[Rfam]
RNA: Lysine riboswitch aptamer
RNA sequence: AAUAAGGAUAGAGGCGCAAAAACCAUGAGUAAGCUGCAAGAGGAUGAUGAGAUCCGACUACUGCAGUGGAAAGGGGAAUUUGCCGAAGCUUAGAGAAACUCAUAUUUCUCUAUUGCUGGGCCUGCUGUUGAAUAAACACAGGACUGUCAUGUAGGAAACUAUAUGGAGGGCUAUCGUACGC
Dot-bracket structure: ......(((((....(((((..((........((((((.......................)))))).......))..)))))...(((.((((((((......))))))))..)))((.((((.((((.....)))))))).)).(((((((......)))))))....)))))......